[Rfam]
RNA: tRNA
Organism: Malassezia sympodialis
RNA sequence: GACCCAUUGGUACAGUGGUUAGCACGUGGAGCUGUUAAACUGGUCGGUUGAACGACUACAAAACUCUAAGGUCACUGGUUCGAUUCCAGUAUGGGUCG
Numbered sequence: 001g002a003c004c005c006a007u008u009g010g011u012a013c014a015g016u017g018g019u020u021a022g023c024a025c026g027u028g029g030a031g032c033u034g035u036u037a038a039a040c041u042g043g044u045c046g047g048u049u050g051a052a053c054g055a056c057u058a059c060a061a062a063a064c065u066c067u068a069a070g071g072u073c074a075c076u077g078g079u080u081c082g083a084u085u086c087c088a089g090u091a092u093g094g095g096u097c098g
Base pairs, nucleotide, nucleotide: 001097002096003095004094005093006092007091010025011024013022027068028067029066030065031064074090075089076088077087078086